RNA sequence: AUGCAUUGGGGGCAAAUAUGGAGUGCAAGAAGAUGAGAGACUCUUUGUUAUGCCCUCUCUUCUCCUCUAUAUUCCAAAUAGUUUGUUUUGGUAUUAACCAUUUUUGAAGAUGGAUAAUACCAAAACAAACCGGCAAGUCACGAAACGGCAAAGGAGACUCAAUUGAGUCUU
Numbered sequence: 001a002u003g004c005a006u007u008g009g010g011g012g013c014a015a016a017u018a019u020g021g022a023g024u025g026c027a028a029g030a031a032g033a034u035g036a037g038a039g040a041c042u043c044u045u046u047g048u049u050a051u052g053c054c055c056u057c058u059c060u061u062c063u064c065c066u067c068u069a070u071a072u073u074c075c076a077a078a079u080a081g082u083u084u085g086u087u088u089u090g091g092u093a094u095u096a097a098c099c100a101u102u103u104u105u106g107a108a109g110a111u112g113g114a115u116a117a118u119a120c121c122a123a124a125a126c127a128a129a130c131c132g133g134c135a136a137g138u139c140a141c142g143a144a145a146c147g148g149c150a151a152a153g154g155a156g157a158c159u160c161a162a163u164u165g166a167g168u169c170u171u
Stems, first nucleotide, its partner, number of pairs: 022068002081130006101119001156169005
Record summary:
The family of this 171-nucleotide RNA from Cynara cardunculus is "Early nodulin 40". The organism belongs to Cynara cardunculus subsp. cardunculus, within Eukaryota. The literature on the family includes a 2007 paper in Nucleic Acids Res by Gultyaev and Roussis, "Identification of conserved secondary structures and expansion segments in enod40 RNAs reveals new enod40 homologues in plants". The match comes from Rfam's covariance-model search (68 bits).